[Rfam]
Nucleotides: 099
Base pairs, nucleotide, nucleotide: 008085009084010083011051012050013049014048016045017026018025019024033044034043035042036041057080058079059078060077061074062073063072064071
Number, partner (000 for none) and nucleotide at each position: 001000a002000u003000a004000u005000a006000a007000u008085g009084c010083g011051a012050g013049g014048g015000g016045u017026g018025c019024c020000g021000u022000a023000u024019g025018g026017c027000u028000g029000a030000g031000a032000c033044g034043a035042a036041u037000u038000a039000u040000g041036a042035u043034u044033c045016g046000g047000a048014c049013c050012c051011u052000u053000u054000g055000a056000a057080c058079c059078u060077g061074u062073a063072a064071g065000u066000u067000a068000a069000u070000a071064c072063u073062u074061g075000c076000g077060u078059a079058g080057g081000g082000a083010c084009g085008u086000u087000a088000a089000a090000g091000c092000u093000a094000a095000g096000u097000u098000a099000a

This 99-nucleotide RNA from Ligilactobacillus pobuzihii belongs to the Rfam family "TPP riboswitch aptamer (THI element)". The base pairs follow the family's consensus structure, which is taken from published work. The organism belongs to Ligilactobacillus, within Bacteria.